[Rfam]
RNA sequence: GUGCCUUAAACUUAUGAGUAAGGAAAAUAAAGUGCCUUGGUAACGCUUGGCGCGACCAAGUAUAUUUGGUACUAAUUUUUGGAAGGGUACAGGUCGUCCCCGUGUAGCCCGCUUACUUUCGCGGGUUGCUGGGUUGUUGUGAUCUUACCCU
Numbered sequence: 001g002u003g004c005c006u007u008a009a010a011c012u013u014a015u016g017a018g019u020a021a022g023g024a025a026a027a028u029a030a031a032g033u034g035c036c037u038u039g040g041u042a043a044c045g046c047u048u049g050g051c052g053c054g055a056c057c058a059a060g061u062a063u064a065u066u067u068g069g070u071a072c073u074a075a076u077u078u079u080u081g082g083a084a085g086g087g088u089a090c091a092g093g094u095c096g097u098c099c100c101c102g103u104g105u106a107g108c109c110c111g112c113u114u115a116c117u118u119u120c121g122c123g124g125g126u127u128g129c130u131g132g133g134u135u136g137u138u139g140u141g142a143u144c145u146u147a148c149c150c151u
Base pairs, nucleotide, nucleotide: 004023005022006021007020008019032053033052034051035050036049039046055070056069057068058067059066084151085150086149087148088147091145092144093143094142095141096140097139101133104129105128106127108125109124110123111122112121
RNA: U12 minor spliceosomal RNA
Organism: Nephila pilipes